This 104-nucleotide RNA sequence from Trueperella bialowiezensis belongs to the Rfam family "TPP riboswitch aptamer (THI element)".
RNA sequence: GUGGCACGACAGGGGAGCGCGGAUGCGCUGAGAGUGCGAACAGAUCGCAGACCCUCGAACCUGCUCCGGUUAGUACCGGCGAAGGAAGUCGAGCAAUCUCUCCC
Numbered sequence: 001g002u003g004g005c006a007c008g009a010c011a012g013g014g015g016a017g018c019g020c021g022g023a024u025g026c027g028c029u030g031a032g033a034g035u036g037c038g039a040a041c042a043g044a045u046c047g048c049a050g051a052c053c054c055u056c057g058a059a060c061c062u063g064c065u066c067c068g069g070u071u072a073g074u075a076c077c078g079g080c081g082a083a084g085g086a087a088g089u090c091g092a093g094c095a096a097u098c099u100c101u102c103c104c
Stems, first nucleotide, its partner, number of pairs: 007091004011055004017028004035049005060085003066079004

Pairs were carried over by alignment from the consensus structure, which is taken from published work. Lineage of the source: Bacteria > Bacillati > Actinomycetales > Actinomycetaceae > Trueperella.